[Rfam]
RNA: Small nucleolar RNA R72
RNA sequence: GUGCAAAGGAUAAGUUCAAGCUUUAUCCACAAACUUAAGUUGAUUUCAACAUCUUUAAAACUCCAAAUUCGACCAUGACUAUGAUGCAC
Numbered sequence: 001g002u003g004c005a006a007a008g009g010a011u012a013a014g015u016u017c018a019a020g021c022u023u024u025a026u027c028c029a030c031a032a033a034c035u036u037a038a039g040u041u042g043a044u045u046u047c048a049a050c051a052u053c054u055u056u057a058a059a060a061c062u063c064c065a066a067a068u069u070c071g072a073c074c075a076u077g078a079c080u081a082u083g084a085u086g087c088a089c
Stems, first nucleotide, its partner, number of pairs: 001089005039050004